[Rfam]
RNA sequence: CUUCAGCGACCCCAGCCGGACCGGCUCGGCCCGGUCCUGGCCGUAGGUGGCCAGCAGCGCUUGGGCCUC
Numbered sequence: 001c002u003u004c005a006g007c008g009a010c011c012c013c014a015g016c017c018g019g020a021c022c023g024g025c026u027c028g029g030c031c032c033g034g035u036c037c038u039g040g041c042c043g044u045a046g047g048u049g050g051c052c053a054g055c056a057g058c059g060c061u062u063g064g065g066c067c068u069c
Stems, first nucleotide, its partner, number of pairs: 014026004027063001032059002037054003041050003